Rfam assigns this 88-nucleotide sequence from Hibiscus trionum to the family "Small nucleolar RNA R11/Z151". Rfam links the family to the GO terms RNA processing and nucleolus.

[Rfam]
RNA sequence: AGGCUAAUGAUGAUAAUUUAAAAUUAUCUUAGCGAAUUUCAGUGAAAUUGUAUUAUCAAUGAUCUUAUUGUUACACACAUUGAAGCCU
Numbered sequence: 001a002g003g004c005u006a007a008u009g010a011u012g013a014u015a016a017u018u019u020a021a022a023a024u025u026a027u028c029u030u031a032g033c034g035a036a037u038u039u040c041a042g043u044g045a046a047a048u049u050g051u052a053u054u055a056u057c058a059a060u061g062a063u064c065u066u067a068u069u070g071u072u073a074c075a076c077a078c079a080u081u082g083a084a085g086c087c088u
Stems, first nucleotide, its partner, number of pairs: 001088005
Taxonomically the source falls in Hibiscus (Eukaryota, Spermatophyta, Mesangiospermae, Gunneridae).